[Rfam]
RNA sequence: CUCUGUGGUUUAAUCUUUAGGCCACAUUAAACUCCUUUAAUUCGGUGAAACUCCAAACGUGAAAGUCGCGGACAAUACCGAGCGAAUGUUUAUUUACCAGAAAUUUUGAGAGCAUUACCCCAACAUUGAAGAAAUACUUGCUGGUAAAUAAAAAACGUGUAACGACUAUCGAAAGCGUUCAAGCAGACUGAAAUGUCUGCUUUUUUGUGCGAUGAGUAGAGUAAGCCUUAAGUGAGGCUGAAAGAGGGAGGACUGUUUAGCAGUCAAUAUAUAGUCUGAACUGUAUGGAAACAUACAG
Numbered sequence: 001c002u003c004u005g006u007g008g009u010u011u012a013a014u015c016u017u018u019a020g021g022c023c024a025c026a027u028u029a030a031a032c033u034c035c036u037u038u039a040a041u042u043c044g045g046u047g048a049a050a051c052u053c054c055a056a057a058c059g060u061g062a063a064a065g066u067c068g069c070g071g072a073c074a075a076u077a078c079c080g081a082g083c084g085a086a087u088g089u090u091u092a093u094u095u096a097c098c099a100g101a102a103a104u105u106u107u108g109a110g111a112g113c114a115u116u117a118c119c120c121c122a123a124c125a126u127u128g129a130a131g132a133a134a135u136a137c138u139u140g141c142u143g144g145u146a147a148a149u150a151a152a153a154a155a156c157g158u159g160u161a162a163c164g165a166c167u168a169u170c171g172a173a174a175g176c177g178u179u180c181a182a183g184c185a186g187a188c189u190g191a192a193a194u195g196u197c198u199g200c201u202u203u204u205u206u207g208u209g210c211g212a213u214g215a216g217u218a219g220a221g222u223a224a225g226c227c228u229u230a231a232g233u234g235a236g237g238c239u240g241a242a243a244g245a246g247g248g249a250g251g252a253c254u255g256u257u258u259a260g261c262a263g264u265c266a267a268u269a270u271a272u273a274g275u276c277u278g279a280a281c282u283g284u285a286u287g288g289a290a291a292c293a294u295a296c297a298g
Stems, first nucleotide, its partner, number of pairs: 005025009032250004037245002042081006052072003082158002087153001089151002095146005162277001164276005253263004283296005

Group I catalytic intron: a 298-nucleotide RNA from Secundilactobacillus collinoides. Group I catalytic introns are large self-splicing ribozymes. They catalyse their own excision from mRNA, tRNA and rRNA precursors in a wide range of organisms. The core secondary structure consists of 9 paired regions (P1-P9). The literature on the family includes a 1990 paper in Annu Rev Biochem by Cech, "Self-splicing of group I introns". A search with the family's covariance model found it, with a score of 67 bits. Pairs were carried over by alignment from the consensus structure, which is taken from published work.